[Rfam]
RNA sequence: UGCCAAGAUGGCAAACCUAGUGAAAGCUGGGGACGCAAAGCCACGGGCCCUUAGCGAACAAGAUCAAAAGAGGAGUUCAAAGGGUAGCCGGGUUACCGAAG
Numbered sequence: 001u002g003c004c005a006a007g008a009u010g011g012c013a014a015a016c017c018u019a020g021u022g023a024a025a026g027c028u029g030g031g032g033a034c035g036c037a038a039a040g041c042c043a044c045g046g047g048c049c050c051u052u053a054g055c056g057a058a059c060a061a062g063a064u065c066a067a068a069a070g071a072g073g074a075g076u077u078c079a080a081a082g083g084g085u086a087g088c089c090g091g092g093u094u095a096c097c098g099a100a101g
Stems, first nucleotide, its partner, number of pairs: 001101001003098001011036002016031006034087001039094004044090003047085006